[Rfam]
RNA sequence: CGGAAGUGCCUUGCCGAUCGUGCCUGAUGCGGUCCUAGAGAAACCCCAUCAUCGCAGGCCGCAAGGCACUUCUUCGUUUCUGGGUGAGCCAUCCACGGGCAUCAAGCCGGUGGAUCCGG
Numbered sequence: 001c002g003g004a005a006g007u008g009c010c011u012u013g014c015c016g017a018u019c020g021u022g023c024c025u026g027a028u029g030c031g032g033u034c035c036u037a038g039a040g041a042a043a044c045c046c047c048a049u050c051a052u053c054g055c056a057g058g059c060c061g062c063a064a065g066g067c068a069c070u071u072c073u074u075c076g077u078u079u080c081u082g083g084g085u086g087a088g089c090c091a092u093c094c095a096c097g098g099g100c101a102u103c104a105a106g107c108c109g110g111u112g113g114a115u116c117c118g119g
Base pairs, nucleotide, nucleotide: 002073003072004071005070006069007068008067009066010065011064012063013062015061016060019057021056022055023054025051026050027049028048032044033043099117101115102114103113105111
RNA: Actinobacteria sRNA Ms_IGR-7
Organism: Streptomyces sp. KM273126